RNA sequence: GCAACCGAAUAGGGAGCUCAAGGGCGGUCGGCCAUCCCCGAACGAAAGGGGGUGGUAAAGAUGACAGUUUACGAAGCAUUAAUGUUUGCAGUGGCGUUUGCAGGCUUGGUGCUGGUCAUAGCUUCAUCAGACCAGAAAAAAUAACCCGCCCCUUGAGUUGACAGCUCGGCGGGUUAUCCUCGUAAUUGUAGCCGUUCCCCCUUGAAGGGACCUGUUCGUUGCUAUGCCGUCGGUGUUACCAGCACCGGCG
Numbered sequence: 001g002c003a004a005c006c007g008a009a010u011a012g013g014g015a016g017c018u019c020a021a022g023g024g025c026g027g028u029c030g031g032c033c034a035u036c037c038c039c040g041a042a043c044g045a046a047a048g049g050g051g052g053u054g055g056u057a058a059a060g061a062u063g064a065c066a067g068u069u070u071a072c073g074a075a076g077c078a079u080u081a082a083u084g085u086u087u088g089c090a091g092u093g094g095c096g097u098u099u100g101c102a103g104g105c106u107u108g109g110u111g112c113u114g115g116u117c118a119u120a121g122c123u124u125c126a127u128c129a130g131a132c133c134a135g136a137a138a139a140a141a142u143a144a145c146c147c148g149c150c151c152c153u154u155g156a157g158u159u160g161a162c163a164g165c166u167c168g169g170c171g172g173g174u175u176a177u178c179c180u181c182g183u184a185a186u187u188g189u190a191g192c193c194g195u196u197c198c199c200c201c202u203u204g205a206a207g208g209g210a211c212c213u214g215u216u217c218g219u220u221g222c223u224a225u226g227c228c229g230u231c232g233g234u235g236u237u238a239c240c241a242g243c244a245c246c247g248g249c250g
Stems, first nucleotide, its partner, number of pairs: 001222005008216003012212001015196002017157008026146003032055003036051004063125002066123004076089003092115001167188003198209003228250010